[Rfam]
RNA: Selenocysteine insertion sequence 1
Organism: Cyprinodon variegatus
RNA sequence: CUUGUUACAAUGACGACUUGUCUGAAAACUCCUUUUUCAGGAAGCCAGACAAUGUCUGACAGCUGACAAG
Numbered sequence: 001c002u003u004g005u006u007a008c009a010a011u012g013a014c015g016a017c018u019u020g021u022c023u024g025a026a027a028a029c030u031c032c033u034u035u036u037u038c039a040g041g042a043a044g045c046c047a048g049a050c051a052a053u054g055u056c057u058g059a060c061a062g063c064u065g066a067c068a069a070g
Base pairs, nucleotide, nucleotide: 001070002069003068004067005066015056016055017054018052019051020050021049022048023047024046030042031041032040